Overview
A member of the RNA family "RNase E 5' UTR element" from Providencia heimbachae, 315 nucleotides long. From the family's description: This family represents a conserved element found in the 5' UTR of RNase E mRNA. RNase E is a key regulatory enzyme in the pathway of mRNA degradation in E. coli that is able to auto-regulate the degradation of its own mRNA in response to changes in RNase E activity. Rfam classes the family as a cis-regulatory element. Lineage of the source: Bacteria > Pseudomonadota > Gammaproteobacteria > Morganellaceae > Providencia heimbachae.
RNA sequence: ACACCUAGGUAGCUUGAAGGACUAAGGGUAUAGAAUUUGUUAUUUGAUGGCGUAACGAUGCUGCAAUGGCGUAAGACAUUUAACAACAUCAAAUAAAUUAGCGAGCAACGAAUUUUAGCUUAUUGGGUUAGGAACUUCCGUUUGUAUAAACAUUUACGGCAUCCUGAUUAAGAACGCUGAAUUUUUAAUCUAAAAAUCAGGUUCACCGAAUAUUGCGCGUCUCUAUACGAACGACUGCCGGGAGGCAGGCGGUUUUGUAAAAAUCAUGAGGCCAUCGGUUUACAGUAGCUCUUUUUUUCGCUGCUCUUUAUUUAA
Numbered sequence: 001a002c003a004c005c006u007a008g009g010u011a012g013c014u015u016g017a018a019g020g021a022c023u024a025a026g027g028g029u030a031u032a033g034a035a036u037u038u039g040u041u042a043u044u045u046g047a048u049g050g051c052g053u054a055a056c057g058a059u060g061c062u063g064c065a066a067u068g069g070c071g072u073a074a075g076a077c078a079u080u081u082a083a084c085a086a087c088a089u090c091a092a093a094u095a096a097a098u099u100a101g102c103g104a105g106c107a108a109c110g111a112a113u114u115u116u117a118g119c120u121u122a123u124u125g126g127g128u129u130a131g132g133a134a135c136u137u138c139c140g141u142u143u144g145u146a147u148a149a150a151c152a153u154u155u156a157c158g159g160c161a162u163c164c165u166g167a168u169u170a171a172g173a174a175c176g177c178u179g180a181a182u183u184u185u186u187a188a189u190c191u192a193a194a195a196a197u198c199a200g201g202u203u204c205a206c207c208g209a210a211u212a213u214u215g216c217g218c219g220u221c222u223c224u225a226u227a228c229g230a231a232c233g234a235c236u237g238c239c240g241g242g243a244g245g246c247a248g249g250c251g252g253u254u255u256u257g258u259a260a261a262a263a264u265c266a267u268g269a270g271g272c273c274a275u276c277g278g279u280u281u282a283c284a285g286u287a288g289c290u291c292u293u294u295u296u297u298u299c300g301c302u303g304c305u306c307u308u309u310a311u312u313u314a315a
Stems, first nucleotide, its partner, number of pairs: 006021001040096008052084002058079003063070002103306005109300004122286001129166005138159004173203003177200004182195004205279005219272005232251002235248005